The record is a 516-nucleotide part of an RNA from Gallus gallus, which matches "Eukaryotic large subunit ribosomal RNA" in Rfam. Taxonomically the source falls in Gallus (Eukaryota, Metazoa, Vertebrata, Coelurosauria). The family is grouped with related families in Rfam's "LSU clan". The family's consensus secondary structure is taken from published work.
[Rfam]
RNA sequence: CCCUCCGAAGUUUCCCUCAGGAUAGCUGGCGCUCGGGGCGGCGGUGCAGUUUUACCCGGUAAAGCGAAUGAUUAGAGGUCUUGGGGCCGAAACGAUCUCAACCUAUUCUCAAACUUUCAAUGGGUAAGACGCCCGGCUCGCUGGCGUGGAGCCGGGCCGUGGAAUGCGAGCGCUCAGUGGGCCACUUUUGGUAAGCAGAACUGGCGCUGCGGGAUGAACCGAACGCCGGGUUAAGGCGCCCGAUGCCGACGCUCAUCAGAGCCCAGAAAAGGUGUUGGUUGAUCUAGACAGCAGGACGGUGGCCAUGGAAGUCGGAACCCGCUAAGGAGUGUGUAACAACUCACCUGCCGAAUCAACUAGCCCUGAAAAUGGAUGGCGCUGGAGCGUCGGGCCCAUACCCGGCCGUCGCCGGCAGUGCGGAGCCGCGGGGGCUACGCCGCGACGAGUAGGAGGGCCGCUGCGGUGCGCCUGGAAGCCUGGGGCGCGGGCCCGGGUGGAGCCGCCGCAGGUGCAGAU
Numbered sequence: 001c002c003c004u005c006c007g008a009a010g011u012u013u014c015c016c017u018c019a020g021g022a023u024a025g026c027u028g029g030c031g032c033u034c035g036g037g038g039c040g041g042c043g044g045u046g047c048a049g050u051u052u053u054a055c056c057c058g059g060u061a062a063a064g065c066g067a068a069u070g071a072u073u074a075g076a077g078g079u080c081u082u083g084g085g086g087c088c089g090a091a092a093c094g095a096u097c098u099c100a101a102c103c104u105a106u107u108c109u110c111a112a113a114c115u116u117u118c119a120a121u122g123g124g125u126a127a128g129a130c131g132c133c134c135g136g137c138u139c140g141c142u143g144g145c146g147u148g149g150a151g152c153c154g155g156g157c158c159g160u161g162g163a164a165u166g167c168g169a170g171c172g173c174u175c176a177g178u179g180g181g182c183c184a185c186u187u188u189u190g191g192u193a194a195g196c197a198g199a200a201c202u203g204g205c206g207c208u209g210c211g212g213g214a215u216g217a218a219c220c221g222a223a224c225g226c227c228g229g230g231u232u233a234a235g236g237c238g239c240c241c242g243a244u245g246c247c248g249a250c251g252c253u254c255a256u257c258a259g260a261g262c263c264c265a266g267a268a269a270a271g272g273u274g275u276u277g278g279u280u281g282a283u284c285u286a287g288a289c290a291g292c293a294g295g296a297c298g299g300u301g302g303c304c305a306u307g308g309a310a311g312u313c314g315g316a317a318c319c320c321g322c323u324a325a326g327g328a329g330u331g332u333g334u335a336a337c338a339a340c341u342c343a344c345c346u347g348c349c350g351a352a353u354c355a356a357c358u359a360g361c362c363c364u365g366a367a368a369a370u371g372g373a374u375g376g377c378g379c380u381g382g383a384g385c386g387u388c389g390g391g392c393c394c395a396u397a398c399c400c401g402g403c404c405g406u407c408g409c410c411g412g413c414a415g416u417g418c419g420g421a422g423c424c425g426c427g428g429g430g431g432c433u434a435c436g437c438c439g440c441g442a443c444g445a446g447u448a449g450g451a452g453g454g455c456c457g458c459u460g461c462g463g464u465g466c467g468c469c470u471g472g473a474a475g476c477c478u479g480g481g482g483c484g485c486g487g488g489c490c491c492g493g494g495u496g497g498a499g500c501c502g503c504c505g506c507a508g509g510u511g512c513a514g515a516u
Base pairs, nucleotide, nucleotide: 001454002453003452004451005450006449011024013022014021015020028174029173030172031171032170033169050129051128052127053126054125055124056123057122062117063115064114069111070110071109074106076104077103078102081101082100083099084098085097086096088094131157132156133155134154135153136152137151138150139149181205182204183203184202186200187199188198189197190196210221211220212219225403226402227401228400229399231397235393236392237391244390246389250386251385252384270364271363272362274361275360276359277358278357279356280355281354282353283352291348292347293346294345295344297321298320299319303315304314322326327342331340332339404444405443406442407441408440409439411438412437413436456511458508459507460506461505462504463503464502465501467500468499475495476494481490482489483488